[Rfam]
RNA sequence: CCGUCCCGCUCGGGACAGCAACUACCCCGGUACCUGACACGGCCGGGGAG
Numbered sequence: 001c002c003g004u005c006c007c008g009c010u011c012g013g014g015a016c017a018g019c020a021a022c023u024a025c026c027c028c029g030g031u032a033c034c035u036g037a038c039a040c041g042g043c044c045g046g047g048g049a050g
Stems, first nucleotide, its partner, number of pairs: 001018001003016005022050002025048007

A member of the RNA family "L17-Actino-Proteobacteria ribosomal protein leader" from Nocardioides kongjuensis, 50 nucleotides long. The base pairs follow the family's consensus structure, which is taken from published work. Rfam classes the family as a cis-regulatory leader. On this family, see Eckert and Weinberg, BMC Microbiol 2020: "Discovery of 20 novel ribosomal leader candidates in bacteria and archaea".